[Rfam]
The record is a 367-nucleotide RNA from Geobacter sp. OR-1, which matches "Bacterial RNase P class A" in Rfam. Lineage of the source: Bacteria > Desulfuromonadia > Geobacterales > Geobacteraceae > Geobacter. Its family is annotated with dimeric ribonuclease P complex, ribonuclease P activity and tRNA processing in the Gene Ontology.

RNA sequence: CGAAGCAGAACAGAUGACCGCCGCCUUUUAGAGGGGGAGGAAAGUCCGGGCUCCAUAGGGCGUGGUGCUGGAUAACGUCCAGCGGGGGUGACCCCAGGGAAAGUGCCACAGAGAGAAGUCCGCCCGUUUCGGCGGGUAAGGGUGAAAGGGUGAGGUAAGAGCUCACCGGAUUCGGCGGUGACGCCGGAUGCCAGGUAAACCCCACCAGGAGCAAGGCCAAAUAGGGAAGCGCAGAGGGUGGCCCGCCCGAGCUUCCGGGUUGGCUGCUUGAGGUCGUCGGCAACAACGAUCCUAGAUGAAUGGUCAUCGCUGUCUUGCGGGUAACCGCAGGGCGGAACAAAACCCGGCUUACGGCCUGCUUCGGCCA
Numbered sequence: 001c002g003a004a005g006c007a008g009a010a011c012a013g014a015u016g017a018c019c020g021c022c023g024c025c026u027u028u029u030a031g032a033g034g035g036g037g038a039g040g041a042a043a044g045u046c047c048g049g050g051c052u053c054c055a056u057a058g059g060g061c062g063u064g065g066u067g068c069u070g071g072a073u074a075a076c077g078u079c080c081a082g083c084g085g086g087g088g089u090g091a092c093c094c095c096a097g098g099g100a101a102a103g104u105g106c107c108a109c110a111g112a113g114a115g116a117a118g119u120c121c122g123c124c125c126g127u128u129u130c131g132g133c134g135g136g137u138a139a140g141g142g143u144g145a146a147a148g149g150g151u152g153a154g155g156u157a158a159g160a161g162c163u164c165a166c167c168g169g170a171u172u173c174g175g176c177g178g179u180g181a182c183g184c185c186g187g188a189u190g191c192c193a194g195g196u197a198a199a200c201c202c203c204a205c206c207a208g209g210a211g212c213a214a215g216g217c218c219a220a221a222u223a224g225g226g227a228a229g230c231g232c233a234g235a236g237g238g239u240g241g242c243c244c245g246c247c248c249g250a251g252c253u254u255c256c257g258g259g260u261u262g263g264c265u266g267c268u269u270g271a272g273g274u275c276g277u278c279g280g281c282a283a284c285a286a287c288g289a290u291c292c293u294a295g296a297u298g299a300a301u302g303g304u305c306a307u308c309g310c311u312g313u314c315u316u317g318c319g320g321g322u323a324a325c326c327g328c329a330g331g332g333c334g335g336a337a338c339a340a341a342a343c344c345c346g347g348c349u350u351a352c353g354g355c356c357u358g359c360u361u362c363g364g365c366c367a
Base pairs, nucleotide, nucleotide: 001363002362003361004360005359006358007357008356011354013308014307015306016305017304018303019302021037022036024034025033026032027031042350043349044348046347047346048345049344050343051211052210053209054208058244059243060242061241063207064206065205066204067203068082069081070080071079072078083097084095085094086093087092098202099201103200104199105196106195107194120141121140122137123136124135125134126133127132149167150166151165152164153163154162169191170189171188172187173186174185175184176183177182215265216264217263218262225256226255227254228253229252230251236248237247238246239245272291273290274289275288276287277286279284